Rfam assigns this 79-nucleotide RNA from Photinus pyralis to the family "mir-2796 microRNA precursor family". The family's consensus secondary structure was predicted with RNAalifold. The match comes from Rfam's covariance-model search (73 bits).
RNA sequence: AUGUUAUAGUAGGGGUUUCUUUCGGCCUCCAGCGGAGUAGAGGAUGUUGUAGGCCGGCGGAAACUACUUGCUAUCGCAU
Numbered sequence: 001a002u003g004u005u006a007u008a009g010u011a012g013g014g015g016u017u018u019c020u021u022u023c024g025g026c027c028u029c030c031a032g033c034g035g036a037g038u039a040g041a042g043g044a045u046g047u048u049g050u051a052g053g054c055c056g057g058c059g060g061a062a063a064c065u066a067c068u069u070g071c072u073a074u075c076g077c078a079u
Stems, first nucleotide, its partner, number of pairs: 006074003010070004014065007022057007030049003